[Rfam]
About this RNA:
The family of this 66-nucleotide RNA from Geobacter anodireducens is "L20-Deltaproteobacteria ribosomal protein leader". The family's RNA type in Rfam is cis-regulatory leader. For this family Rfam cites "Discovery of 20 novel ribosomal leader candidates in bacteria and archaea" (Eckert and Weinberg, BMC Microbiol, 2020). The family's consensus secondary structure is taken from published work.

RNA sequence: CGCCGUGAACCGUGAGGAACUGUCUCCCCUUGCGGAUCCGGAAAAAUAUCACAGAAAAAGAAGGAG
Numbered sequence: 001c002g003c004c005g006u007g008a009a010c011c012g013u014g015a016g017g018a019a020c021u022g023u024c025u026c027c028c029c030u031u032g033c034g035g036a037u038c039c040g041g042a043a044a045a046a047u048a049u050c051a052c053a054g055a056a057a058a059a060g061a062a063g064g065a066g
Base pairs, nucleotide, nucleotide: 003041004040005039007038008037010035011034012033013032014031015030016029017028